[Rfam]
RNA sequence: AUUAUUUCACGCAAAGGAAAUAAUUGGAUUAAUUAAAGGAAACUUUAUUUAAUUCAUAUCGGGAGGAAAUGCACGAUAUA
Dot-bracket structure: ((((((((........)))))))).(((((((.(((((....))))).)))))))((((((............)))))).
Numbered sequence: 001a002u003u004a005u006u007u008c009a010c011g012c013a014a015a016g017g018a019a020a021u022a023a024u025u026g027g028a029u030u031a032a033u034u035a036a037a038g039g040a041a042a043c044u045u046u047a048u049u050u051a052a053u054u055c056a057u058a059u060c061g062g063g064a065g066g067a068a069a070u071g072c073a074c075g076a077u078a079u080a
Stems, first nucleotide, its partner, number of pairs: 001024008026055007034047005056079006